tRNA: an 82-nucleotide RNA from Sylvietta virens.
Rfam classes the family as a transfer RNA.
Pairs were carried over by alignment from the consensus structure, which is taken from published work.
It scores 59 bits against the family's covariance model.
The source organism's lineage runs through Eukaryota, Gnathostomata, Archelosauria, Australaves and Sylvietta.
RNA sequence: GCUGUGAUGGCCGAGGGGUGAAGGCGUUGGACUCGAAAUCCAAUGGGGGUUCUCUGCGCAGGUUCGGAUCCUGCUCACAGCG
Dot-bracket structure: (((((((..(((..........))).(((((.......)))))..............(((((.......)))))))))))).